[Rfam]
A member of the RNA family "Bacterial RNase P class A" from Porphyromonas asaccharolytica, 396 nucleotides long. It is annotated as a ribozyme. Taxonomically the source falls in Porphyromonas asaccharolytica (Bacteria, Pseudomonadati, Bacteroidia, Porphyromonadaceae). About the family: Ribonuclease P (RNase P) is a ubiquitous endoribonuclease, found in archaea, bacteria and eukarya as well as chloroplasts and mitochondria. Pairs were carried over by alignment from the consensus structure, which is taken from published work.
RNA sequence: GCAGUAGAUCGGCUUGUCGCUGUCGUAAGAGGGUGAGAGCCUCGGCUCCGCCCGCAAGCGAGAGAGGAAAGUCCGGGCAACGCAGAGUACCAUACUCCCUAACAGAGAGCUAUCCGCGAGGGUAGGUGACGUGUAGAAGAGAAUGACCGCCUAGAGCUGCCUACGGCACGCUAGGUAAGGGUGAGAAGGUGAGGUAAGAGCUCACCAGCAGUGUGGGUGACCCACUGGCUGUACACACUAUGGGUUGCAAGAUCAAGUAUACCGACGCUAUGAGGGCUACUCGUCCUAGUCGGAGGGUAGAUUGCUAGAGGCACUCGGCAACGGGUGUCGUAGAUAAAUGACAAGCGCCACUCCUCGUGACUGGCACAGAACCCGGCUUAUAGACCUACUGUCCUC
Numbered sequence: 001g002c003a004g005u006a007g008a009u010c011g012g013c014u015u016g017u018c019g020c021u022g023u024c025g026u027a028a029g030a031g032g033g034u035g036a037g038a039g040c041c042u043c044g045g046c047u048c049c050g051c052c053c054g055c056a057a058g059c060g061a062g063a064g065a066g067g068a069a070a071g072u073c074c075g076g077g078c079a080a081c082g083c084a085g086a087g088u089a090c091c092a093u094a095c096u097c098c099c100u101a102a103c104a105g106a107g108a109g110c111u112a113u114c115c116g117c118g119a120g121g122g123u124a125g126g127u128g129a130c131g132u133g134u135a136g137a138a139g140a141g142a143a144u145g146a147c148c149g150c151c152u153a154g155a156g157c158u159g160c161c162u163a164c165g166g167c168a169c170g171c172u173a174g175g176u177a178a179g180g181g182u183g184a185g186a187a188g189g190u191g192a193g194g195u196a197a198g199a200g201c202u203c204a205c206c207a208g209c210a211g212u213g214u215g216g217g218u219g220a221c222c223c224a225c226u227g228g229c230u231g232u233a234c235a236c237a238c239u240a241u242g243g244g245u246u247g248c249a250a251g252a253u254c255a256a257g258u259a260u261a262c263c264g265a266c267g268c269u270a271u272g273a274g275g276g277c278u279a280c281u282c283g284u285c286c287u288a289g290u291c292g293g294a295g296g297g298u299a300g301a302u303u304g305c306u307a308g309a310g311g312c313a314c315u316c317g318g319c320a321a322c323g324g325g326u327g328u329c330g331u332a333g334a335u336a337a338a339u340g341a342c343a344a345g346c347g348c349c350a351c352u353c354c355u356c357g358u359g360a361c362u363g364g365c366a367c368a369g370a371a372c373c374c375g376g377c378u379u380a381u382a383g384a385c386c387u388a389c390u391g392u393c394c395u396c
Stems, first nucleotide, its partner, number of pairs: 001392007009384002011381001012346007020064002023061004069379003073376005078247004085282004090243005095109003099105001110125001112123004126238002131236005147180002149176006156169001188206006208229001209227005215222002251303004262293005273287005310329008